[Rfam]
RNA sequence: UGCAGGCUUUCCAUCAGCUUGCAAUUCUGAAGAGGCACACCUGAAUUGCCGGAAGUGCGGUAGGGACAACCCUCCAAUCCAAGGCAGACAAAGCCGGAUCAAAGCUCGUGGCAGGGCGUUGGUCUACAUAUCGCGCGGUAAAGCGUGCUCACGGUAC
Numbered sequence: 001u002g003c004a005g006g007c008u009u010u011c012c013a014u015c016a017g018c019u020u021g022c023a024a025u026u027c028u029g030a031a032g033a034g035g036c037a038c039a040c041c042u043g044a045a046u047u048g049c050c051g052g053a054a055g056u057g058c059g060g061u062a063g064g065g066a067c068a069a070c071c072c073u074c075c076a077a078u079c080c081a082a083g084g085c086a087g088a089c090a091a092a093g094c095c096g097g098a099u100c101a102a103a104g105c106u107c108g109u110g111g112c113a114g115g116g117c118g119u120u121g122g123u124c125u126a127c128a129u130a131u132c133g134c135g136c137g138g139u140a141a142a143g144c145g146u147g148c149u150c151a152c153g154g155u156a157c
Stems, first nucleotide, its partner, number of pairs: 001023008034050004057136003083095002103119001104117004
Description
A member of the RNA family "speF leader" from Aliirhizobium cellulosilyticum, 157 nucleotides long. About the family: This family is a putative regulatory RNA structure that is found upstream of the speF gene encoding ornithine decarboxylase in Agrobacterium tumefaciens and other alpha-proteobacteria. Its family is annotated with regulation of gene expression in the Gene Ontology. Lineage of the source: Bacteria > Pseudomonadota > Alphaproteobacteria > Rhizobiaceae > Aliirhizobium.